[Rfam]
RNA sequence: UGAAAAUAAUAGCCGAAUCCGUAAAAGGUACGGGGGAACCUAUAUGAAGGGGUGAAUCCAUAACAAAAUUAUGGUAGGGCAGCUUCCUUUCCCGAACCCGUCAGCUAACCCCGGAGGCUAAAGGAAGGAGAAAA
Numbered sequence: 001u002g003a004a005a006a007u008a009a010u011a012g013c014c015g016a017a018u019c020c021g022u023a024a025a026a027g028g029u030a031c032g033g034g035g036g037a038a039c040c041u042a043u044a045u046g047a048a049g050g051g052g053u054g055a056a057u058c059c060a061u062a063a064c065a066a067a068a069u070u071a072u073g074g075u076a077g078g079g080c081a082g083c084u085u086c087c088u089u090u091c092c093c094g095a096a097c098c099c100g101u102c103a104g105c106u107a108a109c110c111c112c113g114g115a116g117g118c119u120a121a122a123g124g125a126a127g128g129a130g131a132a133a134a
Stems, first nucleotide, its partner, number of pairs: 011119004019028002031113005040049002050099003058074004077093003

About this RNA: Shown here is a 134-nucleotide sequence from Caldanaerobius fijiensis, a member of the family "c-di-AMP riboswitch aptamer (ydaO/yuaA leader)". Pairs were carried over by alignment from the consensus structure. Taxonomically the source falls in Caldanaerobius fijiensis (Bacteria, Thermoanaerobacterales, Thermoanaerobacteraceae, Caldanaerobius). The match comes from Rfam's covariance-model search (106 bits).